[Rfam]
RNA sequence: GUUUCUGUCUGAUAUGUUUGAUAUUAGGUUGAUCUACUGAGAAACCAACUAAAUAUCAAACAUAUUCUUACAGCGAC
Numbered sequence: 001g002u003u004u005c006u007g008u009c010u011g012a013u014a015u016g017u018u019u020g021a022u023a024u025u026a027g028g029u030u031g032a033u034c035u036a037c038u039g040a041g042a043a044a045c046c047a048a049c050u051a052a053a054u055a056u057c058a059a060a061c062a063u064a065u066u067c068u069u070a071c072a073g074c075g076a077c
Base pairs, nucleotide, nucleotide: 005073006072007071008070011066012065013064014063015062016061017060018059019058020057021056022055023054024053025052027050028049029048030047031046
Dot-bracket structure: ....((((..(((((((((((((((.(((((..............))))).)))))))))))))))...))))....